Bacterial large subunit ribosomal RNA: a 590-nucleotide part of an RNA from Massiliimalia timonensis. A search with the family's covariance model found it, with a score of 2774 bits. Its Rfam clan is "LSU clan". The base pairs follow the family's consensus structure, which is taken from published work.
[Rfam]
RNA sequence: CCCGCGACUAGACGGAAAGACCCCAUGGAGCUUUACUGUAGCUUAAUGUUGGAUUUUGGUAUGUGAUGUACAGGAUAGGUGGGAGACUAGGAAGCAUAGGCGUCAGCUUAUGUGGAGUCAACCUUGGGAUACCACUCUUUAUGUACUGAAAUUCUAACCUGCGGCCAUGAAUCUGGUCGGGGGACAUCGUUAGGUGGGCAGUUUGACUGGGGCGGUCGCCUCCAAAAGAGUAACGGAGGCGCUCAAAGGUUCGCUCAGCAUGGACGGAAACCAUGCUCUUGAGUGUAAACGCAAAAGCGAGCCUAACUGCGAGACUGACGGGUCGAGCAGUAACGAAAGUUGGAGUUAGUGAUCCGGCGGUAUGAGAGUGGAAUUGCCGUCGCUCAACGGAUAAAAGCUACCCUGGGGAUAACAGGCUGAUCUCCCCCAAGAGUCCACAUCGACGGGGAGGUUUGGCACCUCGAUGUCGGCUCAUCGCAUCCUGGGGCUGUAUUCGGUCCCAAGGGUUUGGCUGUUCGCCAAUUAAAGCGGUACGCGAGCUGGGUUCAGAACGUCGUGAGACAGUUCGGUCCCUAUCUGUCGUGGGCGCA
Number, nucleotide and partner (000 for none) at each position: 001c586002c585003c584004g583005c582006g581007a580008c579009u000010a578011g577012a576013c000014g573015g572016a000017a000018a000019g000020a000021c000022c407023c406024c405025a404026u000027g403028g402029a399030g398031c397032u396033u395034u000035a202036c201037u200038g199039u000040a000041g000042c194043u193044u192045a191046a190047u189048g188049u000050u000051g154052g153053a152054u151055u150056u149057u148058g147059g146060u145061a144062u143063g142064u141065g140066a139067u000068g137069u000070a000071c000072a000073g000074g000075a000076u000077a000078g136079g135080u134081g133082g132083g000084a000085g119086a118087c117088u000089a000090g000091g000092a000093a000094g113095c112096a111097u110098a109099g108100g107101c106102g000103u000104c000105a000106g101107c100108u099109u098110a097111u096112g095113u094114g000115g000116a000117g087118u086119c085120a000121a000122c000123c000124u000125u000126g000127g000128g000129a000130u000131a000132c082133c081134a080135c079136u078137c068138u000139u066140u065141a064142u063143g062144u061145a060146c059147u058148g057149a056150a055151a054152u053153u052154c051155u000156a000157a000158c182159c181160u180161g000162c179163g178164g177165c176166c175167a174168u000169g000170a000171a000172u000173c000174u167175g166176g165177u164178c163179g162180g160181g159182g158183g000184a000185c000186a000187u000188c048189g047190u046191u045192a044193g043194g042195u000196g000197g000198g000199c038200a037201g036202u035203u000204u000205g217206a216207c215208u214209g000210g000211g000212g000213c000214g208215g207216u206217c205218g240219c239220c238221u237222c236223c235224a000225a000226a000227a000228g000229a000230g000231u000232a000233a000234c000235g223236g222237a221238g220239g219240c218241g388242c000243u344244c343245a000246a000247a000248g000249g302250u301251u300252c299253g298254c297255u282256c281257a000258g276259c275260a274261u273262g272263g271264a000265c000266g000267g000268a000269a000270a000271c263272c262273a261274u260275g259276c258277u000278c000279u000280u000281g256282a255283g292284u291285g000286u000287a000288a000289a000290c000291g284292c283293a000294a000295a000296a000297g254298c253299g252300a251301g250302c249303c000304u000305a000306a000307c330308u329309g328310c327311g000312a000313g324314a323315c322316u000317g000318a000319c000320g000321g000322g315323u314324c313325g000326a000327g310328c309329a308330g307331u000332a341333a340334c339335g000336a000337a000338a000339g334340u333341u332342g000343g244344a243345g000346u000347u000348a000349g000350u000351g000352a000353u000354c000355c382356g381357g380358c379359g378360g377361u376362a000363u000364g375365a374366g000367a000368g000369u000370g000371g000372a000373a000374u365375u364376g361377c360378c359379g358380u357381c356382g355383c000384u000385c000386a000387a000388c241389g000390g000391a000392u000393a000394a000395a033396a032397g031398c030399u029400a000401c000402c028403c027404u025405g024406g023407g022408g000409a000410u000411a000412a000413c000414a000415g000416g457417c456418u455419g000420a454421u451422c450423u449424c448425c447426c446427c445428c000429a000430a000431g441432a440433g000434u000435c000436c000437a000438c000439a000440u432441c431442g000443a000444c000445g427446g426447g425448g424449a423450g422451g421452u000453u000454u420455g418456g417457c416458a000459c000460c000461u000462c000463g000464a000465u000466g000467u000468c543469g541470g540471c539472u538473c535474a532475u531476c530477g529478c528479a000480u000481c506482c505483u000484g501485g500486g499487g498488c497489u496490g000491u000492a000493u000494u000495c000496g489497g488498u487499c486500c485501c484502a000503a000504g000505g482506g481507u000508u522509u521510g520511g519512c518513u000514g000515u000516u000517c000518g512519c511520c510521a509522a508523u000524u000525a000526a000527a000528g478529c477530g476531g475532u474533a000534c000535g473536c000537g000538a472539g471540c470541u469542g000543g468544g000545u000546u000547c000548a000549g567550a566551a565552c564553g562554u561555c560556g000557u000558g000559a000560g555561a554562c553563a000564g552565u551566u550567c549568g000569g000570u000571c000572c015573c014574u000575a000576u012577c011578u010579g008580u007581c006582g005583u004584g003585g002586g001587c000588g000589c000590a000